[Rfam]
RNA sequence: CCACCCGAAAUGGCUCGCAGGCCAGCCCGCCCGGAGGCAGGUGGCGGGGUAGAGCACUUACUGGGUGUGCAGGGGGAGAAAUCCCUCGGCACCCUGUAAAACUCCGAACCCGCCACCGCCGUAGAAGGGCGGAGUCAGGGGCACGGGGUAAGCCUGUGUCCCGAGAGGGGAACAACCCAGACCGGGGUUAAGGCCCCUAAAUGCCGGCUAAGUAGCGAAGGUGGUCCCCGGCCUCAGACAGUGAGGAGGUAGGCUUAGAAGCAGCCAUCCUCUAAGGAGUGCGUAACAGCUCACUCACCGAGGCCGGGGGCGCCGAAAAUGGACGGGGUUUAAGCCGGCUGCCGAUACCCCGGAGCACCGCGAAAUGCGGUGAUCUGGUAGGGUGGCGUCCCGCCAGGGCAGAAGCGGGGGCGUGAGCUCCCGUGGACCUGGCGGGAAUGAGAAU
Dot-bracket structure: ((((((....(((((....))))).(((((((...(((.((((((((....(((....(((.((((((...((((((....)))))).)))))).)))...)).)....)))))))))))......)))))).)...(((((((((.......)))))))))....(((......)))...(((((((...(((......(.((((((...........(((.((((((((((.......(((((.(((..(((.........)))..)))(...)(...((......)).).)))))...)))))))))))))...................))))))))))...)))))))(((((((.......)))))..))....))))))(.((((((((((......((((((((....))))))))...))))))))))..).....
Overview
This 445-nucleotide part of an RNA from Methanothermus fervidus belongs to the Rfam family "Archaeal large subunit ribosomal RNA". Pairs were carried over by alignment from the consensus structure, which is taken from published work. For this family Rfam cites "Crystal structure of the ribosome at 5.5 A resolution" (Yusupov et al., Science, 2001).